[Rfam]
RNA sequence: AAGUUCUCAUCGGGGUGCCUUAAAUUUAUGGCUGAGAAAAUACCCGUAGAACCUGAACCGAGUAAUAUCAGCGUAGGGAUUUGAGAAACGGAAAAUU
Numbered sequence: 001a002a003g004u005u006c007u008c009a010u011c012g013g014g015g016u017g018c019c020u021u022a023a024a025u026u027u028a029u030g031g032c033u034g035a036g037a038a039a040a041u042a043c044c045c046g047u048a049g050a051a052c053c054u055g056a057a058c059c060g061a062g063u064a065a066u067a068u069c070a071g072c073g074u075a076g077g078g079a080u081u082u083g084a085g086a087a088a089c090g091g092a093a094a095a096u097u
Stems, first nucleotide, its partner, number of pairs: 006085004011046004016040001017032003021028001052077004058071001060069002
Annotation: TPP riboswitch aptamer (THI element): a 97-nucleotide RNA from [Actinobacillus] rossii. NCBI's taxonomy places the organism under Bacteria, Pseudomonadota, Gammaproteobacteria, Pasteurellaceae, [Pasteurella] aerogenes-[Pasteurella] mairii-[Actinobacillus] rossii complex. Pairs were carried over by alignment from the consensus structure, which is taken from published work. Gene Ontology term of the family: thiamine pyrophosphate binding.